[Rfam]
RNA sequence: UCCUUAUUAAGAGUGGUGGAGGGACUGGCCCUGUGAAACCCGGCAACCGCUGUUCAAACUUGAACAGAAUGGUGCUAAAUCCUUGAACGAGAUUCGUUCGGAGAUGAGGA
Dot-bracket structure: ((((((((....(.(((...(((...[[)))......))))((((.((.(((((........)))))...))))))...(]]..((((((...))))))..)))))))))

Rfam assigns this 110-nucleotide RNA from Rossellomorea marisflavi to the family "SAM riboswitch aptamer (S box leader)".